This 60-nucleotide RNA from Passiflora misera belongs to the Rfam family "Plastid-psbA-4 3UTR RNA".
RNA sequence: AAAUAAAGGAGCAAUAACCAAUUUCUUGUUAUAUCAAGGGUAUGGUUAUUGCUCCUUUAU
Numbered sequence: 001a002a003a004u005a006a007a008g009g010a011g012c013a014a015u016a017a018c019c020a021a022u023u024u025c026u027u028g029u030u031a032u033a034u035c036a037a038g039g040g041u042a043u044g045g046u047u048a049u050u051g052c053u054c055c056u057u058u059a060u
Stems, first nucleotide, its partner, number of pairs: 005058012020043001023040006

About the family: Plastid psbA-4 is a non-coding RNA (ncRNA) present in plastids. It was identified in inverted repeat sequences in the 3 prime untranslate region (3UTR) of photosystem II quinone-binding protein (psbA).
The sequence is in the family's curated seed alignment.
On this family, see Richter et al., Plant Commun 2023: "Retrograde signaling in plants: A critical review focusing on the GUN pathway and beyond".
By type it is a cis-regulatory element.
Lineage of the source: Eukaryota > Spermatophyta > Magnoliopsida > Malpighiales > Passiflora.